[Rfam]
RNA sequence: GCAUGCUGCUGCCCAGGUACUUAGUGACUCUCAAUCACAUUUGUGCCUUGCAUAUUUUGAGGGUCGCUCUGUGCCUGUACCGCGUAUGU
Numbered sequence: 001g002c003a004u005g006c007u008g009c010u011g012c013c014c015a016g017g018u019a020c021u022u023a024g025u026g027a028c029u030c031u032c033a034a035u036c037a038c039a040u041u042u043g044u045g046c047c048u049u050g051c052a053u054a055u056u057u058u059g060a061g062g063g064u065c066g067c068u069c070u071g072u073g074c075c076u077g078u079a080c081c082g083c084g085u086a087u088g089u
Base pairs, nucleotide, nucleotide: 001089002088003087004086005085009082011080014077015076016075017074018073019072020071023068024067025066026065027064028063029062030061031060032059033058034055035054
mir-306 microRNA precursor family: an 89-nucleotide RNA from Drosophila albomicans. Taxonomically the source falls in Drosophila (Eukaryota, Opisthokonta, Ecdysozoa, Diptera). Gene Ontology terms of the family: RISC complex and miRNA-mediated post-transcriptional gene silencing. The family has 16 seed sequences and 49 matches in Rfam 15.1. The match comes from Rfam's covariance-model search (64 bits). On this family, see Aravin et al., Dev Cell 2003: "The small RNA profile during Drosophila melanogaster development".